[Rfam]
RNA sequence: GGGGCGGAAUCCGAAAAGCCAUAAGAGUAGGAG
Numbered sequence: 001g002g003g004g005c006g007g008a009a010u011c012c013g014a015a016a017a018g019c020c021a022u023a024a025g026a027g028u029a030g031g032a033g
Stems, first nucleotide, its partner, number of pairs: 003020003010032003

Source information: Shown here is a 33-nucleotide RNA from Mucilaginibacter paludis, a member of the family "DUF805b RNA". A search with the family's covariance model found it, with a score of 37 bits. The family is grouped with related families in Rfam's "DUF805 clan". The family's RNA type in Rfam is cis-regulatory element.